[Rfam]
RNA: SL588 non-coding RNA
RNA sequence: CUGGCCCCUGUAUGGGAAUGAGGGCUGCGGGUGGGCAGGCUGGCUUAUGUCUCCCCGCGGCUCUCGCCCUUCUUGGGGCCC
Numbered sequence: 001c002u003g004g005c006c007c008c009u010g011u012a013u014g015g016g017a018a019u020g021a022g023g024g025c026u027g028c029g030g031g032u033g034g035g036c037a038g039g040c041u042g043g044c045u046u047a048u049g050u051c052u053c054c055c056c057g058c059g060g061c062u063c064u065c066g067c068c069c070u071u072c073u074u075g076g077g078g079c080c081c
Stems, first nucleotide, its partner, number of pairs: 003080006014069003019066002022063010033052005039046001